The family of this 142-nucleotide RNA sequence from Columba livia is "Small nucleolar RNA SNORA12". Gene Ontology terms of the family: RNA processing and nucleolus. On this family, see Gu et al., Nucleic Acids Res 2005: "A novel experimental approach for systematic identification of box H/ACA snoRNAs from eukaryotes". It is annotated as an H/ACA-box small nucleolar RNA. A search with the family's covariance model found it, with a score of 70 bits. U108 belongs to the H/ACA family of snoRNAs.
RNA sequence: UACUGUGGUGGUUUCUGUCUUUGGCAGAUCUGUAACAAUACCAGAGCGGCCUUAAACUACCACAGAGAUCAGAACGGAGACGGCUGUGCUGAGAACUUUGUCAAGCUUUCAGUUUUCAGCUUUUUGUUCAGCUCCUACAGUA
Numbered sequence: 001u002a003c004u005g006u007g008g009u010g011g012u013u014u015c016u017g018u019c020u021u022u023g024g025c026a027g028a029u030c031u032g033u034a035a036c037a038a039u040a041c042c043a044g045a046g047c048g049g050c051c052u053u054a055a056a057c058u059a060c061c062a063c064a065g066a067g068a069u070c071a072g073a074a075c076g077g078a079g080a081c082g083g084c085u086g087u088g089c090u091g092a093g094a095a096c097u098u099u100g101u102c103a104a105g106c107u108u109u110c111a112g113u114u115u116u117c118a119g120c121u122u123u124u125u126g127u128u129c130a131g132c133u134c135c136u137a138c139a140g141u142a
Stems, first nucleotide, its partner, number of pairs: 005063007023051003027047001029045004076135004103125003